[Rfam]
RNA sequence: CUGACGAACUCGAGCCGACCUGAGUCGACCCCCCUGAUCGUCAAUGUCCGAUCGAACCGCGAGAUCGAGGUUGUCCCGCGGCCCGAACACGGGAGAGAACGCUGAGCGUCACCAC
Numbered sequence: 001c002u003g004a005c006g007a008a009c010u011c012g013a014g015c016c017g018a019c020c021u022g023a024g025u026c027g028a029c030c031c032c033c034c035u036g037a038u039c040g041u042c043a044a045u046g047u048c049c050g051a052u053c054g055a056a057c058c059g060c061g062a063g064a065u066c067g068a069g070g071u072u073g074u075c076c077c078g079c080g081g082c083c084c085g086a087a088c089a090c091g092g093g094a095g096a097g098a099a100c101g102c103u104g105a106g107c108g109u110c111a112c113c114a115c
Stems, first nucleotide, its partner, number of pairs: 002043006010037003057081005063075003
Shown here is a 115-nucleotide RNA sequence from Nocardia vermiculata, a member of the family "atpB RNA". Rfam classes the family as a cis-regulatory element. The base pairs follow the family's consensus structure, which is taken from published work. It scores 54 bits against the family's covariance model. Lineage of the source: Bacteria > Bacillati > Actinomycetota > Actinomycetes > Nocardia.